Nucleotides: 062
Base pairs, nucleotide, nucleotide: 002019003018004017005016026048027047028046030044031043032042033041034039
Number, partner (000 for none) and nucleotide at each position: 001000a002019u003018u004017g005016u006000g007000a008000c009000a010000u011000g012000u013000u014000a015000a016005a017004c018003a019002a020000a021000a022000a023000c024000g025000a026048c027047c028046c029000g030044g031043c032042a033041g034039g035000u036000g037000u038000a039034c040000g041033c042032u043031g044030c045000c046028g047027g048026g049000c050000g051000u052000u053000u054000u055000g056000u057000a058000u059000g060000g061000g062000c